[Rfam]
RNA sequence: UGUUAAAGCAUUGCACCCAGUGUCUGGUCCACCAGACAUUGUACCUGGAGCUAUUCUUUUUUUUUUAUCUUGAUUA
Numbered sequence: 001u002g003u004u005a006a007a008g009c010a011u012u013g014c015a016c017c018c019a020g021u022g023u024c025u026g027g028u029c030c031a032c033c034a035g036a037c038a039u040u041g042u043a044c045c046u047g048g049a050g051c052u053a054u055u056c057u058u059u060u061u062u063u064u065u066u067a068u069c070u071u072g073a074u075u076a
Stems, first nucleotide, its partner, number of pairs: 005054001007052003017048004022037005
The family of this 76-nucleotide RNA from Nothobranchius furzeri is "U1A polyadenylation inhibition element (PIE)". The literature on the family includes a 2000 paper in Nat Struct Biol by Varani et al., "The NMR structure of the 38 kDa U1A protein - PIE RNA complex reveals the basis of cooperativity in regulation of polyadenylation by human U1A protein". Taxonomically the source falls in Nothobranchius (Eukaryota, Metazoa, Vertebrata, Osteoglossocephalai). About the family: This family represents the U1A polyadenylation inhibition element (PIE). PIE is a regulatory RNA which is responsible for the regulation of the length of the polyA tail of the U1A pre-mRNA. The PIE is located in the U1A mRNA 3' UTR. PIE adopts a U-shaped structure, with binding sites for a single U1A protein at each bend and when complexed with the two proteins it blocks activity of poly(A) polymerase (PAP), and inhibits its activity.